Rfam assigns this 111-nucleotide RNA sequence from Tyzzerella sp. An114 to the family "SAM riboswitch aptamer (S box leader)". From the family's description: The SAM riboswitch is found upstream of a number of genes which code for proteins involved in methionine or cysteine biosynthesis in Gram-positive bacteria. The SAM riboswitch acts at the level of transcription termination control. The organism belongs to Tyzzerella, within Bacteria.

RNA sequence: AACUUAUCAAGAGAGGUUGAGGGACAGGGCCCUGUGACACCCGGCAACCGGCAUAAUAGCACGGUGCCAAUUCCCCCGCAUUAUAUAUAAAUAUAUUGUGGAAGAUGAGGA
Numbered sequence: 001a002a003c004u005u006a007u008c009a010a011g012a013g014a015g016g017u018u019g020a021g022g023g024a025c026a027g028g029g030c031c032c033u034g035u036g037a038c039a040c041c042c043g044g045c046a047a048c049c050g051g052c053a054u055a056a057u058a059g060c061a062c063g064g065u066g067c068c069a070a071u072u073c074c075c076c077c078g079c080a081u082u083a084u085a086u087a088u089a090a091a092u093a094u095a096u097u098g099u100g101g102a103a104g105a106u107g108a109g110g111a
Stems, first nucleotide, its partner, number of pairs: 003109006013042001015041003021032003027075003043068004048064002050060001053057001072103001077100004082095004